[Rfam]
RNA sequence: AUCCAGAAAACAGUGAUGUGAUAAAUUCCAAGCACAUAUCUGAUGAUUCCAUGUGGAAAGCAGCUACUGAGUUUUCUGGAC
Dot-bracket structure: .(((((.((((...........................................................)))).))))).
The family of this 81-nucleotide sequence from Ochotona princeps is "Small nucleolar RNA SNORD121A".
By type it is a C/D-box small nucleolar RNA.
Pairs were carried over by alignment from the consensus structure, which was predicted with WAR.
Gene Ontology terms of the family: RNA processing and nucleolus.
It is one of the family's seed sequences.
The organism belongs to Ochotona, within Eukaryota.